[Rfam]
This 136-nucleotide RNA sequence from Leptobrachium leishanense belongs to the Rfam family "Small nucleolar RNA SNORD94". Pairs were carried over by alignment from the consensus structure, which was predicted with RNAalifold. For this family Rfam cites "Purified box C/D snoRNPs are able to reproduce site-specific 2'-O-methylation of target RNA in vitro" (Galardi et al., Mol Cell Biol, 2002).
RNA sequence: GCGGCAGUGAUGAUCGGCGCAGGGGUACCGACCUCGGCUGGAUUAUGGGAGCCGAGUGCGAGUGUCUCUGUGUAUCCUGCAUGUUGCGGGUGACCUCGGAGCACUCGCAUGAGAACGGAGCCGUGAUCUGAGCCGC
Numbered sequence: 001g002c003g004g005c006a007g008u009g010a011u012g013a014u015c016g017g018c019g020c021a022g023g024g025g026u027a028c029c030g031a032c033c034u035c036g037g038c039u040g041g042a043u044u045a046u047g048g049g050a051g052c053c054g055a056g057u058g059c060g061a062g063u064g065u066c067u068c069u070g071u072g073u074a075u076c077c078u079g080c081a082u083g084u085u086g087c088g089g090g091u092g093a094c095c096u097c098g099g100a101g102c103a104c105u106c107g108c109a110u111g112a113g114a115a116c117g118g119a120g121c122c123g124u125g126a127u128c129u130g131a132g133c134c135g136c
Base pairs, nucleotide, nucleotide: 001136002135003134004133005132
It scores 117 bits against the family's covariance model. Rfam links the family to the GO terms RNA processing and nucleolus. Rfam classes the family as a C/D-box small nucleolar RNA.